Background:
Small nucleolar RNA SNORA24: a 131-nucleotide RNA from Piaya cayana. Taxonomically the source falls in Piaya (Eukaryota, Euteleostomi, Coelurosauria, Cuculiformes).
[Rfam]
RNA sequence: AUCCAUGACUCCAUGGGGGCCGCCCGCCGUGGCUGUUCCCCUUCCUAGGCAUGGAAGAGCAGCUCCUCGCUAAUUGGCAAAGCUUCUACCCGGGCGUGGGUAUGAGUUGUUGACUGUGGCGAGAGACAGGC
Numbered sequence: 001a002u003c004c005a006u007g008a009c010u011c012c013a014u015g016g017g018g019g020c021c022g023c024c025c026g027c028c029g030u031g032g033c034u035g036u037u038c039c040c041c042u043u044c045c046u047a048g049g050c051a052u053g054g055a056a057g058a059g060c061a062g063c064u065c066c067u068c069g070c071u072a073a074u075u076g077g078c079a080a081a082g083c084u085u086c087u088a089c090c091c092g093g094g095c096g097u098g099g100g101u102a103u104g105a106g107u108u109g110u111u112g113a114c115u116g117u118g119g120c121g122a123g124a125g126a127c128a129g130g131c
Base pairs, nucleotide, nucleotide: 002055003054004053005052006051007050015041016040017039018038020035022033023032024031069127071125074122075121076120080115083106084105085104088101089100090099091098
ACA24 is a member of the H/ACA class of snoRNA that guide the sites of modification of uridines to pseudouridines. It is annotated as an H/ACA-box small nucleolar RNA.